[Rfam]
RNA sequence: UCUCAUUUAAACGACACAAUCCCGAACCUCUAUUGCGUCCUUGUAGCCCUAUAGCUACGCCAGUUUGAAUAAAUUUCAUUAAAAUAUU
Numbered sequence: 001u002c003u004c005a006u007u008u009a010a011a012c013g014a015c016a017c018a019a020u021c022c023c024g025a026a027c028c029u030c031u032a033u034u035g036c037g038u039c040c041u042u043g044u045a046g047c048c049c050u051a052u053a054g055c056u057a058c059g060c061c062a063g064u065u066u067g068a069a070u071a072a073a074u075u076u077c078a079u080u081a082a083a084a085u086a087u088u
Stems, first nucleotide, its partner, number of pairs: 036067002040063002042059006